[Rfam]
RNA sequence: UGGUGCCCAACGUGGAAGCCUGGAUACUGAGGACAACAGUGAGGGAGGACGGAAACAGAAAAGGAGUGCACUCGACAAAAUUCACGGACGCGCCGUGGGAACCUGCCACGACCGGACUGAAGGUAAGUUGUGCUGUCCGAUCAUAGGGCAAGAAAUUAGUAUGCAUCAGGUUUAUGUUAAGCAAUUAAGAGAUGCUUUAAAGACACGGGGAGUAAAGGUUAAAAUAGAGGAUCUAUUGAGGUUCUUUGAAUUCGUUAAGGAAACUUGUCCUU
Number, nucleotide and partner (000 for none) at each position: 001u000002g000003g000004u000005g000006c032007c031008c000009a000010a000011c000012g027013u026014g025015g000016a000017a000018g000019c000020c000021u000022g000023g000024a000025u014026a013027c012028u000029g000030a000031g007032g006033a000034c000035a000036a000037c052038a000039g050040u049041g000042a000043g000044g000045g000046a000047g000048g000049a040050c039051g000052g037053a000054a000055a000056c000057a000058g000059a000060a000061a000062a000063g000064g000065a000066g000067u000068g000069c000070a000071c000072u000073c000074g000075a000076c000077a000078a000079a000080a000081u000082u123083c122084a000085c119086g000087g000088a000089c000090g000091c114092g000093c000094c110095g109096u108097g107098g106099g000100a000101a000102c000103c000104u000105g000106c098107c097108a096109c095110g094111a000112c000113c000114g091115g000116a000117c000118u000119g085120a000121a000122g083123g082124u000125a000126a000127g000128u000129u000130g000131u150132g149133c148134u000135g000136u147137c146138c000139g144140a000141u000142c000143a000144u139145a000146g137147g136148g133149c132150a131151a000152g000153a000154a000155a000156u199157u000158a197159g195160u194161a193162u000163g000164c000165a000166u000167c000168a000169g000170g000171u000172u000173u000174a000175u000176g000177u000178u000179a000180a000181g000182c000183a000184a000185u000186u000187a000188a000189g000190a000191g000192a000193u161194g160195c159196u000197u158198u000199a156200a000201a000202g000203a000204c000205a000206c248207g247208g246209g245210g244211a243212g242213u241214a000215a000216a234217g233218g232219u231220u230221a000222a000223a000224a000225u000226a000227g000228a000229g000230g220231a219232u218233c217234u216235a000236u000237u000238g000239a000240g000241g213242u212243u211244c210245u209246u208247u207248g206249a000250a000251u000252u000253c000254g000255u000256u000257a272258a271259g270260g269261a268262a000263a000264c000265u000266u000267g000268u261269c260270c259271u258272u257
RNA: Mason-Pfizer monkey virus packaging signal
Organism: Nannospalax galili